[Rfam]
Nucleotides: 290
Stems, first nucleotide, its partner, number of pairs: 001290004007284003012242002015239004021062005036049004071274005080218004090104005105119005120214007140200003243262006
Number, partner (000 for none) and nucleotide at each position: 001290g002289c003288a004287g005000c006000u007284u008283c009282a010000a011000u012242c013241u014000a015239g016238c017237g018236g019000c020000a021062g022061g023060g024059g025058u026000g027000u028000a029000c030000a031000a032000g033000c034000a035000a036049g037048g038047u039046a040000c041000a042000u043000a044000g045000u046039u047038a048037c049036c050000a051000c052000u053000a054000u055000c056000u057000c058025a059024c060023c061022u062021c063000g064000g065000g066000a067000a068000g069000g070000u071274c072273u073272g074271a075270g076000a077000u078000u079000a080218a081217a082216c083215c084000a085000a086000c087000g088000a089000a090104c091103g092102u093101u094100c095000u096000a097000g098000c099000u100094g101093g102092a103091c104090g105119g106118u107117a108116u109115c110000a111000u112000a113000a114000g115109g116108g117107u118106a119105c120214g121213u122212a123211c124210g125209g126208g127000a128000a129000c130000c131000a132000g133000a134000a135000a136000u137000a138000g139000c140200u141199u142198u143000a144000c145000g146000u147000u148000g149000c150000c151000a152000a153000u154000u155000a156000g157000c158000c159000c160000a161000g162000g163000a164000a165000a166000c167000u168000u169000c170000g171000c172000u173000u174000g175000a176000a177000g178000u179000a180000g181000a182000g183000g184000u185000a186000c187000u188000u189000g190000g191000a192000a193000a194000c195000g196000g197000a198142a199141a200140g201000a202000u203000g204000g205000a206000a207000a208126c209125c210124c211123g212122u213121a214120u215083g216082g217081u218080u219000c220000g221000c222000u223000a224000c225000u226000u227000g228000a229000g230000u231000a232000c233000a234000a235000u236018c237017c238016g239015c240000a241013a242012g243262c244261c245260a246259g247258a248257a249000a250000a251000c252000u253000u254000a255000c256000a257248u258247u259246c260245u261244g262243g263000a264000a265000c266000u267000c268000a269000a270075u271074u272073c273072a274071g275000a276000c277000u278000a279000a280000u281000c282009u283008g284007a285000g286000g287004c288003u289002g290001c